RNA sequence: UAAGUCCCUGCCGGGAAAGGUCUAACCCGCCACCCGUAUCGAGUGUUGCGCCUGUUGCGGAGCUUGGAACGUCAAGCGAACAAGACAGGUGAAGCGUACACAGAGAAUUGUGCAGGCCGUAGGGAGUUCGCAGCUCCUGAGAGUUGGUACAGCUUCGAAAUGAAAGUCGAGAUCGACGAGGGCUUUAACGCGCACCGAAGUCAAUACAGAAGCAUCCGUAUCGUGGUGAGGAUGUGGAGGGUCUCCGGAGUCAUCAGACU
Number, nucleotide and partner (000 for none) at each position: 001u000002a000003a000004g000005u000006c000007c000008c000009u000010g000011c000012c036013g035014g034015g033016a000017a000018a000019g031020g030021u029022c000023u229024a000025a227026c226027c000028c000029g021030c020031c019032a000033c015034c014035c013036g012037u000038a000039u104040c103041g000042a000043g101044u100045g099046u098047u096048g095049c091050g090051c089052c088053u087054g086055u085056u084057g000058c000059g081060g000061a000062g000063c000064u000065u000066g000067g000068a000069a000070c000071g000072u000073c000074a000075a000076g000077c000078g000079a000080a000081c059082a000083a000084g056085a055086c054087a053088g052089g051090u050091g049092a000093a000094g000095c048096g047097u000098a046099c045100a044101c043102a000103g040104a039105g000106a000107a000108u000109u000110g000111u000112g000113c000114a000115g000116g000117c000118c000119g000120u000121a000122g000123g000124g000125a000126g000127u000128u000129c000130g000131c000132a000133g000134c000135u000136c000137c000138u000139g000140a000141g000142a000143g000144u000145u000146g000147g000148u000149a000150c000151a000152g251153c250154u249155u248156c247157g246158a000159a000160a000161u000162g000163a000164a000165a000166g000167u000168c000169g245170a244171g243172a242173u000174c241175g202176a201177c200178g000179a000180g196181g195182g000183c000184u000185u000186u000187a000188a000189c000190g000191c000192g000193c000194a000195c181196c180197g000198a000199a000200g177201u176202c175203a000204a000205u000206a000207c240208a000209g000210a000211a000212g235213c234214a233215u232216c231217c230218g000219u000220a000221u000222c000223g000224u000225g000226g026227u025228g000229a023230g217231g216232a215233u214234g213235u212236g000237g000238a000239g000240g207241g174242u172243c171244u170245c169246c157247g156248g155249a154250g153251u152252c000253a000254u000255c000256a000257g000258a000259c000260u000
Shown here is a 260-nucleotide sequence from Desulfoluna spongiiphila, a member of the family "Group II catalytic intron D1-D4-6". A search with the family's covariance model found it, with a score of 101 bits.